[Rfam]
Small nucleolar RNA SNORA38: a 131-nucleotide RNA sequence from Myotis brandtii.
About the family: ACA38 is a member of the H/ACA class of snoRNA that guide the sites of modification of uridines to pseudouridines.
The source organism's lineage runs through Eukaryota, Metazoa, Bilateria, Deuterostomia and Myotis.

RNA sequence: CACUCCUACAAAGGAAUGUCUGUGGUUUCCUGUCUUUGGACACAUAAGAAUUGGAGGCAAAGAAAUGUGGACUUGGAGAAGUCUGGAACCAGCUUGCCCCCUGCAGGCUCAAGAUCAACCAUCCCCCAUAA
Dot-bracket structure: ..((((..........(((((..((...)).......)))))..........))))............(((.(.................(((((((.....)))))))...........)))).......
Numbered sequence: 001c002a003c004u005c006c007u008a009c010a011a012a013g014g015a016a017u018g019u020c021u022g023u024g025g026u027u028u029c030c031u032g033u034c035u036u037u038g039g040a041c042a043c044a045u046a047a048g049a050a051u052u053g054g055a056g057g058c059a060a061a062g063a064a065a066u067g068u069g070g071a072c073u074u075g076g077a078g079a080a081g082u083c084u085g086g087a088a089c090c091a092g093c094u095u096g097c098c099c100c101c102u103g104c105a106g107g108c109u110c111a112a113g114a115u116c117a118a119c120c121a122u123c124c125c126c127c128a129u130a131a
Stems, first nucleotide, its partner, number of pairs: 003056004017042005024030002069124003073121001091109007